[Rfam]
RNA sequence: GCGAACUGAUAACCCCAAGAGUGGAAUGAAGGGGUAACGCCCUGAAACGCUCUCCCUGAUACUCCGACGGGCGUAUGUACAGGAAACUGGAUAUGUCUGAAGCUCGGUGAAGUCGGCUGAGAGCUGCCGUAAAGCAGAGUAAUCUGCUACGAAAGCUAUCCAGAGGUGGAUGGUGCAACCUACAGGCCGGGGGUCUAUAAA
Dot-bracket structure: .................((((((.......((((.....))))....))))))((((......(((((((((((((.(..((....))).)))))))))....))))......(((((....(.((((((..(((((......))))))))...((((((((....))))))))))).).....)))))))))........